[Rfam]
RNA sequence: GGGAGUGCAUCUUAGAGCUUCCGCAGCCGUGAGGUGUUAAUAGUCUGUCUCAUUUGGCCGAGACACGACGGUUAGUGAAUC
Numbered sequence: 001g002g003g004a005g006u007g008c009a010u011c012u013u014a015g016a017g018c019u020u021c022c023g024c025a026g027c028c029g030u031g032a033g034g035u036g037u038u039a040a041u042a043g044u045c046u047g048u049c050u051c052a053u054u055u056g057g058c059c060g061a062g063a064c065a066c067g068a069c070g071g072u073u074a075g076u077g078a079a080u081c
Base pairs, nucleotide, nucleotide: 001022002021003020004019005018006017037075038074039073040072041071043069044068045067047066048065050063051062
This 81-nucleotide RNA belongs to the Rfam family "L13-Bacteroidia ribosomal protein leader". Rfam classes the family as a cis-regulatory leader. Pairs were carried over by alignment from the consensus structure, which is taken from published work.